[Rfam]
Nucleotides: 123
Base pairs, nucleotide, nucleotide: 017031018030019029020028084123085122086121087120095118096117098115099114100113102111104109
Number, partner (000 for none) and nucleotide at each position: 001000u002000g003000c004000a005000c006000u007000u008000u009000u010000u011000g012000c013000g014000c015000a016000g017031g018030c019029g020028g021000a022000g023000c024000u025000c026000g027000a028020c029019c030018g031017c032000a033000a034000a035000c036000c037000g038000a039000a040000g041000a042000a043000a044000u045000a046000g047000u048000c049000c050000a051000g052000u053000u054000u055000a056000u057000u058000g059000a060000u061000g062000c063000u064000c065000a066000c067000c068000g069000g070000g071000c072000g073000u074000u075000g076000u077000a078000u079000g080000u081000g082000u083000a084123u085122g086121g087120u088000a089000u090000c091000g092000a093000g094000c095118c096117a097000a098115u099114c100113u101000g102111u103000c104109g105000g106000g107000u108000a109104u110000u111102g112000a113100a114099g115098a116000u117096u118095g119000c120087a121086c122085c123084a